The record is a 491-nucleotide part of an RNA from Peptococcaceae bacterium SCADC1_2_3, which matches "Bacterial small subunit ribosomal RNA" in Rfam.
On this family, see Cannone et al., BMC Bioinformatics 2002: "The comparative RNA web (CRW) site: an online database of comparative sequence and structure information for ribosomal, intron, and other RNAs".

[Rfam]
RNA sequence: UGACGGGGGCCCGCACAAGCGGUGGAGCAUGUGGUUUAAUUCGACGCAACGCGAAGAACCUUACCAGGGCUUGACAUCUUCUGAUCGCUUAAGGAAACUUAAGCUUUCCGGAAGGUUUACUUUCCGGACAGAAAGACAGGUGGUGCAUGGUUGUCGUCAGCUCGUGUCGUGAGAUGUUGGGUUAAGUCCCGCAACGAGCGCAACCCCUACGGUUAGUUGCUAACGGGUAAGGCCGAGCACUUUAGCUGAACUGCCGUUGACAAAACGGAGGAAGGCGGGGAUGACGUCAAAUCAUCAUGCCCUUUAUGUCCUGGGCUACACACGUGCUACAAUGGCCUGUACAAAGGGCGGCAAAGGGGCGACCCGGAGCAAAUCCCAAAAAACAGGUCUCAGUUCGGAUUGCAGGCUGCAAUUCGCCUGCAUGAAGGCGGAAUCGCUAGUAAUCGCAGGUCAGCAUACUGCGGUGAAUACGUUCCCGGGCCUUGUACACA
Numbered sequence: 001u002g003a004c005g006g007g008g009g010c011c012c013g014c015a016c017a018a019g020c021g022g023u024g025g026a027g028c029a030u031g032u033g034g035u036u037u038a039a040u041u042c043g044a045c046g047c048a049a050c051g052c053g054a055a056g057a058a059c060c061u062u063a064c065c066a067g068g069g070c071u072u073g074a075c076a077u078c079u080u081c082u083g084a085u086c087g088c089u090u091a092a093g094g095a096a097a098c099u100u101a102a103g104c105u106u107u108c109c110g111g112a113a114g115g116u117u118u119a120c121u122u123u124c125c126g127g128a129c130a131g132a133a134a135g136a137c138a139g140g141u142g143g144u145g146c147a148u149g150g151u152u153g154u155c156g157u158c159a160g161c162u163c164g165u166g167u168c169g170u171g172a173g174a175u176g177u178u179g180g181g182u183u184a185a186g187u188c189c190c191g192c193a194a195c196g197a198g199c200g201c202a203a204c205c206c207c208u209a210c211g212g213u214u215a216g217u218u219g220c221u222a223a224c225g226g227g228u229a230a231g232g233c234c235g236a237g238c239a240c241u242u243u244a245g246c247u248g249a250a251c252u253g254c255c256g257u258u259g260a261c262a263a264a265a266c267g268g269a270g271g272a273a274g275g276c277g278g279g280g281a282u283g284a285c286g287u288c289a290a291a292u293c294a295u296c297a298u299g300c301c302c303u304u305u306a307u308g309u310c311c312u313g314g315g316c317u318a319c320a321c322a323c324g325u326g327c328u329a330c331a332a333u334g335g336c337c338u339g340u341a342c343a344a345a346g347g348g349c350g351g352c353a354a355a356g357g358g359g360c361g362a363c364c365c366g367g368a369g370c371a372a373a374u375c376c377c378a379a380a381a382a383a384c385a386g387g388u389c390u391c392a393g394u395u396c397g398g399a400u401u402g403c404a405g406g407c408u409g410c411a412a413u414u415c416g417c418c419u420g421c422a423u424g425a426a427g428g429c430g431g432a433a434u435c436g437c438u439a440g441u442a443a444u445c446g447c448a449g450g451u452c453a454g455c456a457u458a459c460u461g462c463g464g465u466g467a468a469u470a471c472g473u474u475c476c477c478g479g480g481c482c483u484u485g486u487a488c489a490c491a
Base pairs, nucleotide, nucleotide: 001489002488003486004485005484007483008482009481010480011479012478013477015473016472019437020436021435022434023433024330026328027327028326029325030324031323032322033321034319035318040055041054042053043052064314065313066312067311068310069309070308077136078135079133080132081131082130083129087104088103089102090101091100092099093098107128108127109126110125111124112123113122114121115120139303140302142301143300144299145298148297149296150292151291152290153288155286156285160199161198162197163196164195165194166175167174168173178191179190180189181188205280206279207278208277210248211247212246213245214244215243216242220237221236224235225234226233251271252270254268255267256266257265258264334389335388336387337386338385339384340383346377347376348375351370352369356365357364358363396427401422402421403420404419405418406417407416443465444464445463446462447461448460449459